This 252-nucleotide sequence from Streptomyces sp. TSRI0281 belongs to the Rfam family "Streptomyces sRNA 4677". It scores 102 bits against the family's covariance model. The source organism's lineage runs through Bacteria, Actinomycetes, Kitasatosporales, Streptomycetaceae and Streptomyces.
[Rfam]
RNA sequence: CGACGUGGCGGCCCACGACAUCAACUACGUAAAGAACCAAGAGAAAUAACCCCACCCGACCCCACCCGGUCUCUACCUGACCCACCCCCCCAGGGCUCGUCACUCACACGGGUGAGGUUUGGCAACUGGGCUGGAUUUCGGGCCGGUUGGCAGGCAUAUGCUCACGCAACACCACCAGACAUGCGUCGGCCCCCAAUCAGGACUGCAAUCCCGAUCGAGGGCCUGACCACCGAGGAAGUUCGGAGCUUCCCG
Numbered sequence: 001c002g003a004c005g006u007g008g009c010g011g012c013c014c015a016c017g018a019c020a021u022c023a024a025c026u027a028c029g030u031a032a033a034g035a036a037c038c039a040a041g042a043g044a045a046a047u048a049a050c051c052c053c054a055c056c057c058g059a060c061c062c063c064a065c066c067c068g069g070u071c072u073c074u075a076c077c078u079g080a081c082c083c084a085c086c087c088c089c090c091c092a093g094g095g096c097u098c099g100u101c102a103c104u105c106a107c108a109c110g111g112g113u114g115a116g117g118u119u120u121g122g123c124a125a126c127u128g129g130g131c132u133g134g135a136u137u138u139c140g141g142g143c144c145g146g147u148u149g150g151c152a153g154g155c156a157u158a159u160g161c162u163c164a165c166g167c168a169a170c171a172c173c174a175c176c177a178g179a180c181a182u183g184c185g186u187c188g189g190c191c192c193c194c195a196a197u198c199a200g201g202a203c204u205g206c207a208a209u210c211c212c213g214a215u216c217g218a219g220g221g222c223c224u225g226a227c228c229a230c231c232g233a234g235g236a237a238g239u240u241c242g243g244a245g246c247u248u249c250c251c252g
Stems, first nucleotide, its partner, number of pairs: 002231001005228001011090001100115006130165001132164003188223005194217001200211003234250005
Overview
Located in the intergenic region between anti-sigma factor SCO4677 gene and a putative regulatory protein gene SCO4676. scr4677 expression requires the SCO4677 activity and scr4677 sRNA itself seem to affect the levels of the SCO4676-associated transcripts.